[Rfam]
RNA: tRNA
RNA sequence: GGGGCCGUAGCCCAACUGGCAGAGGCACACGGUUUAGGUCCGUGCCAGUGUGGGUUCGAAUCCCACCGGCCCCA
Numbered sequence: 001g002g003g004g005c006c007g008u009a010g011c012c013c014a015a016c017u018g019g020c021a022g023a024g025g026c027a028c029a030c031g032g033u034u035u036a037g038g039u040c041c042g043u044g045c046c047a048g049u050g051u052g053g054g055u056u057c058g059a060a061u062c063c064c065a066c067c068g069g070c071c072c073c074a
Base pairs, nucleotide, nucleotide: 001073002072003071004070005069006068007067010026011025012024028044029043030042031041032040050066051065052064053063054062